[Rfam]
Description
Shown here is a 94-nucleotide RNA from Mesocricetus auratus, a member of the family "Small nucleolar SNORD12/SNORD106". Clan: SNORD12 clan. Lineage of the source: Eukaryota > Deuterostomia > Myomorpha > Muroidea > Mesocricetus. The base pairs follow the family's consensus structure, which was predicted with RNAalifold.
RNA sequence: UCUGGUGUAAAUGAUGACUUAGCUUUUUUUUCCCCGUCAUAUCGGCAAUGCUGAUCUCUUGAAAUACUUUGCCAGUUAGUCCUGAUACACCAGC
Numbered sequence: 001u002c003u004g005g006u007g008u009a010a011a012u013g014a015u016g017a018c019u020u021a022g023c024u025u026u027u028u029u030u031u032c033c034c035c036g037u038c039a040u041a042u043c044g045g046c047a048a049u050g051c052u053g054a055u056c057u058c059u060u061g062a063a064a065u066a067c068u069u070u071g072c073c074a075g076u077u078a079g080u081c082c083u084g085a086u087a088c089a090c091c092a093g094c
Base pairs, nucleotide, nucleotide: 002093003092004091005090006089007088008087009086